[Rfam]
Background:
This 78-nucleotide sequence from Streptomyces naganishii belongs to the Rfam family "ASpks TB sRNA". The family's RNA type in Rfam is antisense RNA. It scores 72 bits against the family's covariance model.
RNA sequence: CUUGAUCGAGCCCAGCCAGAGGGGCUGGUCCUCGGCGGUCCUGUCCUUGCCGUAGGUGGCGAGGAGCGCCUGCGCCUC
Number, nucleotide and partner (000 for none) at each position: 001c000002u000003u000004g000005a000006u000007c000008g000009a000010g000011c000012c000013c000014a026015g025016c024017c023018a000019g000020a000021g000022g000023g017024g016025c015026u014027g000028g000029u000030c000031c000032u000033c000034g000035g073036c072037g000038g000039u000040c000041c068042u000043g000044u000045c000046c063047u062048u061049g000050c059051c058052g057053u000054a000055g000056g000057u052058g051059g050060c000061g048062a047063g046064g000065a000066g000067c000068g041069c000070c000071u000072g036073c035074g000075c000076c000077u000078c000